[Rfam]
RNA sequence: ACGACCUUACUUGAACAGGAUCUGUUCUAUAGGCUCGUACCGCUGCAUCCUUUACCGAUAAGGAGGCAAGCACUUCAGUCUGGUUGAUGCAUUCUCACCUCUAGGCCAGAGCGUGAUUAACGGCAUUGAUGCACGAUUGGUGUCAUCUGAUGGUUGUAGAGGAUCGUUCUUGCCUAGCUCACACUAGUGCAGGGUGGCCUAGAGGUUGUCUGACAGACU
Numbered sequence: 001a002c003g004a005c006c007u008u009a010c011u012u013g014a015a016c017a018g019g020a021u022c023u024g025u026u027c028u029a030u031a032g033g034c035u036c037g038u039a040c041c042g043c044u045g046c047a048u049c050c051u052u053u054a055c056c057g058a059u060a061a062g063g064a065g066g067c068a069a070g071c072a073c074u075u076c077a078g079u080c081u082g083g084u085u086g087a088u089g090c091a092u093u094c095u096c097a098c099c100u101c102u103a104g105g106c107c108a109g110a111g112c113g114u115g116a117u118u119a120a121c122g123g124c125a126u127u128g129a130u131g132c133a134c135g136a137u138u139g140g141u142g143u144c145a146u147c148u149g150a151u152g153g154u155u156g157u158a159g160a161g162g163a164u165c166g167u168u169c170u171u172g173c174c175u176a177g178c179u180c181a182c183a184c185u186a187g188u189g190c191a192g193g194g195u196g197g198c199c200u201a202g203a204g205g206u207u208g209u210c211u212g213a214c215a216g217a218c219u
Stems, first nucleotide, its partner, number of pairs: 001038002003035001005033003013027006044068003048064005078218005097206012110168004120157005126150002128147003131143004169193005174187004

Rfam assigns this 219-nucleotide RNA from Hordeum vulgare to the family "Plant small nucleolar RNA U3". Pairs were carried over by alignment from the consensus structure, which is taken from published work. The literature on the family includes a 1997 paper in Nucleic Acids Res by Zwieb, "The uRNA database". About the family: Small nucleolar RNAs (snoRNAs) are involved in the processing and modification of rRNA in the nucleolus. There are two main classes of snoRNAs: the box C/D class, and the box H/ACA class. U3 snoRNA is a member of the box C/D class. The source organism's lineage runs through Eukaryota, Embryophyta, Poaceae, Hordeum and Hordeum vulgare. Clan: U3 clan.